Shown here is a 112-nucleotide RNA from Kluyvera cryocrescens, a member of the family "Enterobacteria rnk leader". Rfam links the family to the GO term regulation of gene expression. Pairs were carried over by alignment from the consensus structure, which is taken from published work. On this family, see Naville and Gautheret, Genome Biol 2010: "Premature terminator analysis sheds light on a hidden world of bacterial transcriptional attenuation". The match comes from Rfam's covariance-model search (80 bits).
RNA sequence: UUCCGGGUCGCCGCUCCUGAAUGUGCGCUACAUCACUUCAAACCUGAUGCUGGGAUCAGUAUGAUGGGGUGAGAUGAACCCUUGCCGCUGGCGGUGAGGGUUUUCUUUUGGA
Numbered sequence: 001u002u003c004c005g006g007g008u009c010g011c012c013g014c015u016c017c018u019g020a021a022u023g024u025g026c027g028c029u030a031c032a033u034c035a036c037u038u039c040a041a042a043c044c045u046g047a048u049g050c051u052g053g054g055a056u057c058a059g060u061a062u063g064a065u066g067g068g069g070u071g072a073g074a075u076g077a078a079c080c081c082u083u084g085c086c087g088c089u090g091g092c093g094g095u096g097a098g099g100g101u102u103u104u105c106u107u108u109u110g111g112a
Stems, first nucleotide, its partner, number of pairs: 019039003023036003076103012